[Rfam]
Background:
A member of the RNA family "mir-9242 microRNA precursor family" from Myotis lucifugus, 64 nucleotides long. The organism belongs to Myotis, within Eukaryota. The base pairs follow the family's consensus structure, which was predicted with RNAalifold. Its family is annotated with RISC complex and miRNA-mediated post-transcriptional gene silencing in the Gene Ontology.

RNA sequence: GGCCUACCUCUUUGGGGCAAUCCAUCAUGGAGCCCCACGAUGGAUCGCCCCGCAGAGGGAGGCC
Numbered sequence: 001g002g003c004c005u006a007c008c009u010c011u012u013u014g015g016g017g018c019a020a021u022c023c024a025u026c027a028u029g030g031a032g033c034c035c036c037a038c039g040a041u042g043g044a045u046c047g048c049c050c051c052g053c054a055g056a057g058g059g060a061g062g063c064c
Base pairs, nucleotide, nucleotide: 001064002063003062004061005060007058008057009056010055011054013052014051015050016049017048018047020045021044022043023042024041025040026039028037029036030035